Shown here is a 99-nucleotide RNA sequence from Liquorilactobacillus cacaonum, a member of the family "Purine riboswitch aptamer". Rfam describes the family as follows. Riboswitches are metabolite binding domains within certain messenger RNAs that serve as precision sensors for their corresponding targets. The match comes from Rfam's covariance-model search (73 bits). The family's consensus secondary structure is taken from published work.
RNA sequence: AAUCUUCAAUAGGAUUAAGCUUAUAUAAUGUCAUAAUAAGGAUGACAAGUUUCUACCCAAGACCGUAAAUCUUGGACUAUAAGUAAAAAAGCUAUUAUA
Numbered sequence: 001a002a003u004c005u006u007c008a009a010u011a012g013g014a015u016u017a018a019g020c021u022u023a024u025a026u027a028a029u030g031u032c033a034u035a036a037u038a039a040g041g042a043u044g045a046c047a048a049g050u051u052u053c054u055a056c057c058c059a060a061g062a063c064c065g066u067a068a069a070u071c072u073u074g075g076a077c078u079a080u081a082a083g084u085a086a087a088a089a090a091g092c093u094a095u096u097a098u099a
Stems, first nucleotide, its partner, number of pairs: 019084007029047006057075006